[Rfam]
RNA sequence: UCCCUCAAAGGAAAUGAAGUCUUCCUAUUUGAACCGCCUAAUAAGCUAAUGACUUCUGUGAACUA
Dot-bracket structure: .........[[[[..((((((]]]]..........((.......))....)))))).........